[Rfam]
RNA: TPP riboswitch aptamer (THI element)
Organism: Sporotomaculum syntrophicum
RNA sequence: AAUAAUAUCUAGGGGAGCUCAUUAUAUGUGCUGAGAAAGGGCUGUAAGCACCUGACCCAUGAACCUGAUCGGGGUAAUGCCCGCGUAGGGAAGGUAUAACGGAAAUAU
Numbered sequence: 001a002a003u004a005a006u007a008u009c010u011a012g013g014g015g016a017g018c019u020c021a022u023u024a025u026a027u028g029u030g031c032u033g034a035g036a037a038a039g040g041g042c043u044g045u046a047a048g049c050a051c052c053u054g055a056c057c058c059a060u061g062a063a064c065c066u067g068a069u070c071g072g073g074g075u076a077a078u079g080c081c082c083g084c085g086u087a088g089g090g091a092a093g094g095u096a097u098a099a100c101g102g103a104a105a106u107a108u
Stems, first nucleotide, its partner, number of pairs: 006096005012058003016053001017031002020028002039051001041049002064089004070083004